mir-192/215 microRNA precursor family: a 74-nucleotide sequence from Rhinopithecus roxellana. The base pairs follow the family's consensus structure, which was predicted with PFOLD. About the family: This family represents the human microRNA (miRNA) precursors mir-192 and mir-215. Animal miRNAs are transcribed as ~70nt precursors and subsequently processed by the Dicer enzyme to give a ~22nt product. In this case the mature sequence comes from the 5' arm of the precursor. The organism belongs to Rhinopithecus, within Eukaryota.
RNA sequence: ACAGGAAAAUGACCUAUGAAUUGACAGACACUACAGCUGAGUUUGUCUGUCAUUUCUUUAGGCCAAUAUUCUGU
Numbered sequence: 001a002c003a004g005g006a007a008a009a010u011g012a013c014c015u016a017u018g019a020a021u022u023g024a025c026a027g028a029c030a031c032u033a034c035a036g037c038u039g040a041g042u043u044u045g046u047c048u049g050u051c052a053u054u055u056c057u058u059u060a061g062g063c064c065a066a067u068a069u070u071c072u073g074u
Stems, first nucleotide, its partner, number of pairs: 001074006008067001010065002013062004018056003022052009